[Rfam]
RNA sequence: AAGGAGUAUAUCGAAAAUCCUGCAAAAGAGUAGACA
Numbered sequence: 001a002a003g004g005a006g007u008a009u010a011u012c013g014a015a016a017a018u019c020c021u022g023c024a025a026a027a028g029a030g031u032a033g034a035c036a
Base pairs, nucleotide, nucleotide: 002021003020004019005018011034012033
RNA: DUF805b RNA
Organism: Sphingobacterium sp. KU25419